[Rfam]
RNA sequence: AAGCUGUAUGUGAGAGUUGGAGGAAAUUAAUCCUCAGCUGCUAUAAUUAAUUCUGCAACAUUGGGGUUUAAUUUCCUCCAAUAUCUCACCUCCAGCUA
Numbered sequence: 001a002a003g004c005u006g007u008a009u010g011u012g013a014g015a016g017u018u019g020g021a022g023g024a025a026a027u028u029a030a031u032c033c034u035c036a037g038c039u040g041c042u043a044u045a046a047u048u049a050a051u052u053c054u055g056c057a058a059c060a061u062u063g064g065g066g067u068u069u070a071a072u073u074u075c076c077u078c079c080a081a082u083a084u085c086u087c088a089c090c091u092c093c094a095g096c097u098a
Stems, first nucleotide, its partner, number of pairs: 004095003008091001011088004016082006023075008032066006